[Rfam]
This 163-nucleotide sequence from Camelus bactrianus belongs to the Rfam family "U1 spliceosomal RNA". By type it is a spliceosomal small nuclear RNA. A search with the family's covariance model found it, with a score of 131 bits.

RNA sequence: AUACUUACCUGGCAGGGGAGAUACCAUGAUCACAAAGGUGGUUUUCCCAGGGCAAGGCUUAUCCAUUGCACUCCGCAUGUGCUGACUCCUGCAGUUUUCCCAAAUGUGGGAAAUUCGGCUGCACAAUUCGUGGUAGUGGGGGACUGCGCCAUGCUUUCCCCUU
Numbered sequence: 001a002u003a004c005u006u007a008c009c010u011g012g013c014a015g016g017g018g019a020g021a022u023a024c025c026a027u028g029a030u031c032a033c034a035a036a037g038g039u040g041g042u043u044u045u046c047c048c049a050g051g052g053c054a055a056g057g058c059u060u061a062u063c064c065a066u067u068g069c070a071c072u073c074c075g076c077a078u079g080u081g082c083u084g085a086c087u088c089c090u091g092c093a094g095u096u097u098u099c100c101c102a103a104a105u106g107u108g109g110g111a112a113a114u115u116c117g118g119c120u121g122c123a124c125a126a127u128u129c130g131u132g133g134u135a136g137u138g139g140g141g142g143a144c145u146g147c148g149c150c151a152u153g154c155u156u157u158c159c160c161c162u163u
Base pairs, nucleotide, nucleotide: 012122013121014120015119016048017047018046019045020044021043023042024041025040026039027038049090050089051088052087056083057082058081060079061078062077064075092117094115095113096112097111099109100108138162139161140160141159142158143157146154147153148152